[Rfam]
Nucleotides: 104
Base pairs, nucleotide, nucleotide: 001045003043005041008039009038015036016035017034018033055073056072057071058070059069060068061067079099080098081097082096083095084094085092086091
Number, partner (000 for none) and nucleotide at each position: 001045a002000g003043a004000a005041a006000a007000a008039u009038c010000a011000u012000c013000u014000g015036g016035u017034u018033c019000u020000u021000c022000u023000c024000c025000u026000c027000c028000c029000a030000u031000u032000g033018g034017a035016a036015c037000c038009g039008g040000a041005u042000g043003u044000g045001u046000g047000u048000u049000c050000c051000c052000c053000u054000c055073u056072g057071g058070a059069g060068g061067u062000u063000u064000u065000a066000a067061a068060c069059c070058u071057u072056c073055a074000a075000u076000u077000c078000g079099c080098c081097g082096g083095g084094c085092c086091g087000u088000a089000u090000u091086c092085g093000a094084g095083c096082c097081c098080g099079g100000c101000u102000u103000u104000c
Notes
This 104-nucleotide sequence from Mesorhizobium zhangyense belongs to the Rfam family "Alphaproteobacterial ar15". Gene Ontology term of the family: protein binding. A search with the family's covariance model found it, with a score of 55 bits. The pairing is the family consensus, mapped onto this sequence. Its Rfam clan is "suhB sRNA clan". On this family, see Wilms et al., Mol Microbiol 2011: "Small RNA-mediated control of the Agrobacterium tumefaciens GABA binding protein".